This 180-nucleotide sequence from Aneurinibacillus soli belongs to the Rfam family "6S / SsrS RNA". The family's RNA type in Rfam is non-coding RNA gene. E. coli 6S RNA was the first non coding RNA to be sequenced, but its function was unknown until recently. The family's consensus secondary structure is taken from published work. For this family Rfam cites "6S RNA regulates E. coli RNA polymerase activity" (Wassarman and Storz, Cell, 2000).
[Rfam]
RNA sequence: AAUUGCCUGCGAUGUACGAUCAUUUUUUAUGUUUCGAACCUUACUAUUUAUUAGGGAGUCCGAUAUAAUGUGGUGGACGCUAUGCUUGCACAGAUGAGACAGCGGAAGCGAUGCUGAGGACACCCACCUGCGAGAGCGGGUUAUGAAACAUGAGGAUGAAACGGCAUAGGCGGGGUUACA
Numbered sequence: 001a002a003u004u005g006c007c008u009g010c011g012a013u014g015u016a017c018g019a020u021c022a023u024u025u026u027u028u029a030u031g032u033u034u035c036g037a038a039c040c041u042u043a044c045u046a047u048u049u050a051u052u053a054g055g056g057a058g059u060c061c062g063a064u065a066u067a068a069u070g071u072g073g074u075g076g077a078c079g080c081u082a083u084g085c086u087u088g089c090a091c092a093g094a095u096g097a098g099a100c101a102g103c104g105g106a107a108g109c110g111a112u113g114c115u116g117a118g119g120a121c122a123c124c125c126a127c128c129u130g131c132g133a134g135a136g137c138g139g140g141u142u143a144u145g146a147a148a149c150a151u152g153a154g155g156a157u158g159a160a161a162c163g164g165c166a167u168a169g170g171c172g173g174g175g176u177u178a179c180a
Base pairs, nucleotide, nucleotide: 006174007173008172009171010170012167013166014165015164017163018162032148033147034146035145037142038141039140040139054125055124056123058121059120060119061118065115069113070112071111073109074108080102081101085098086097087096088095